[Rfam]
RNA: Fluoride riboswitch aptamer (crcB RNA motif)
Organism: Oxynema aestuarii
RNA sequence: AAACAACAAGGCAAUGGGGCUUGCCUUAACCGCCUCCUGACUUAUUUAUCAAUUCGCUUAAAAGCGACAAAAAUUAUCAAUAUCGAGGCUGAUAGCUCCUACUUUUCG
Numbered sequence: 001a002a003a004c005a006a007c008a009a010g011g012c013a014a015u016g017g018g019g020c021u022u023g024c025c026u027u028a029a030c031c032g033c034c035u036c037c038u039g040a041c042u043u044a045u046u047u048a049u050c051a052a053u054u055c056g057c058u059u060a061a062a063a064g065c066g067a068c069a070a071a072a073a074u075u076a077u078c079a080a081u082a083u084c085g086a087g088g089c090u091g092a093u094a095g096c097u098c099c100u101a102c103u104u105u106u107c108g
Base pairs, nucleotide, nucleotide: 010025011024012023013022016099017098018097019096020095021094032089033088034087035086